[Rfam]
RNA sequence: GCGGAUGUGAUGGAAUUGGCAGACAUGCAAGAUUUAGGUUCUUGUGCCGCAAGGCGUAGGGGUUCAAGUCCCCUCAUCCGCA
Numbered sequence: 001g002c003g004g005a006u007g008u009g010a011u012g013g014a015a016u017u018g019g020c021a022g023a024c025a026u027g028c029a030a031g032a033u034u035u036a037g038g039u040u041c042u043u044g045u046g047c048c049g050c051a052a053g054g055c056g057u058a059g060g061g062g063u064u065c066a067a068g069u070c071c072c073c074u075c076a077u078c079c080g081c082a
Stems, first nucleotide, its partner, number of pairs: 001081007010026003028044005058074005

Description:
Rfam assigns this 82-nucleotide sequence from Roseburia sp. 1XD42-69 to the family "tRNA". Taxonomically the source falls in Roseburia (Bacteria, Bacillati, Lachnospirales, Lachnospiraceae). It is annotated as a transfer RNA. The match comes from Rfam's covariance-model search (53 bits). Pairs were carried over by alignment from the consensus structure, which is taken from published work.